[Rfam]
RNA sequence: AGACAGUGAUGAAAACCUGAGCAUCAAAGGACCUUCCAGUCUGCUUUGAUGUAUGAUCGACAUAGUUGGGAGA
Numbered sequence: 001a002g003a004c005a006g007u008g009a010u011g012a013a014a015a016c017c018u019g020a021g022c023a024u025c026a027a028a029g030g031a032c033c034u035u036c037c038a039g040u041c042u043g044c045u046u047u048g049a050u051g052u053a054u055g056a057u058c059g060a061c062a063u064a065g066u067u068g069g070g071a072g073a
Base pairs, nucleotide, nucleotide: 021052022051023050024049025048029042030041031040032039